The record is a 114-nucleotide RNA from Borborobacter arsenicus, which matches "TPP riboswitch aptamer (THI element)" in Rfam. It scores 59 bits against the family's covariance model. The base pairs follow the family's consensus structure, which is taken from published work. The source organism's lineage runs through Bacteria, Pseudomonadota, Alphaproteobacteria, Hyphomicrobiales and Borborobacter.

Nucleotides: 114
Stems, first nucleotide, its partner, number of pairs: 006102003010098001011064004016058001017034005041057001043055003069094003075088004
Number, partner (000 for none) and nucleotide at each position: 001000c002000c003000g004000c005000a006102u007101c008100c009000a010098c011064a012063g013062g014061g015000g016058u017034g018033c019032u020031c021030c022000g023000u024000a025000u026000u027000g028000c029000c030021g031020g032019g033018g034017c035000u036000g037000a038000g039000a040000c041057g042000c043055g044054g045053g046000c047000g048000c049000c050000a051000a052000g053045c054044c055043c056000u057041c058016a059000a060000a061014c062013c063012c064011u065000a066000g067000a068000a069094g070093c071092u072000g073000a074000u075088c076087u077086g078085g079000g080000u081000a082000a083000u084000a085078c086077c087076a088075g089000c090000g091000g092071a093070g094069c095000g096000a097000g098010g099000c100008g101007g102006g103000c104000g105000a106000u107000g108000u109000u110000u111000u112000c113000c114000g